Notes
The record is a 231-nucleotide sequence from Cellulosilyticum lentocellum, which matches "T-box leader" in Rfam. Rfam links the family to the GO term tRNA binding.

RNA sequence: UGAAAAGCGAAGAAGAUGCAUAGUAGAAAAGUAAGACCCAAUAGAGAGAAGGUAUCACCGGCUGCAAGUACCUUUUGGCAAUCUUAUUUUUUGAAUUUCACAUUGGAGCUUUAUCUUUGAAAUGAUUAAAAGUAGAAGAUAACGGUGGCAACGUUAGAGCUAAUUGAGUGUUUAUACCUUUGGUAUAAAAAUUUGGGUGGUAUCGCGGAGACUAUAAGCUUCGUCCCUUUU
Numbered sequence: 001u002g003a004a005a006a007g008c009g010a011a012g013a014a015g016a017u018g019c020a021u022a023g024u025a026g027a028a029a030a031g032u033a034a035g036a037c038c039c040a041a042u043a044g045a046g047a048g049a050a051g052g053u054a055u056c057a058c059c060g061g062c063u064g065c066a067a068g069u070a071c072c073u074u075u076u077g078g079c080a081a082u083c084u085u086a087u088u089u090u091u092u093g094a095a096u097u098u099c100a101c102a103u104u105g106g107a108g109c110u111u112u113a114u115c116u117u118u119g120a121a122a123u124g125a126u127u128a129a130a131a132g133u134a135g136a137a138g139a140u141a142a143c144g145g146u147g148g149c150a151a152c153g154u155u156a157g158a159g160c161u162a163a164u165u166g167a168g169u170g171u172u173u174a175u176a177c178c179u180u181u182g183g184u185a186u187a188a189a190a191a192u193u194u195g196g197g198u199g200g201u202a203u204c205g206c207g208g209a210g211a212c213u214a215u216a217a218g219c220u221u222c223g224u225c226c227c228u229u230u231u
Stems, first nucleotide, its partner, number of pairs: 007109002015104004026092006037078002048075008112141007143153002171189007195227003205224005